Source information:
This 47-nucleotide RNA sequence belongs to the Rfam family "DUF3800-XI RNA". About the family: Actinobacteria, Firmicutes, Proteobacteria, Spirochaetes (1 example). Pairs were carried over by alignment from the consensus structure, which is taken from published work.

RNA sequence: AGGGCUGGUCGAAAGACCCGGGUCCAUCGAGAGCGGGGAUGUUCCCC
Numbered sequence: 001a002g003g004g005c006u007g008g009u010c011g012a013a014a015g016a017c018c019c020g021g022g023u024c025c026a027u028c029g030a031g032a033g034c035g036g037g038g039a040u041g042u043u044c045c046c047c
Stems, first nucleotide, its partner, number of pairs: 002025005007018004
By type it is a small RNA.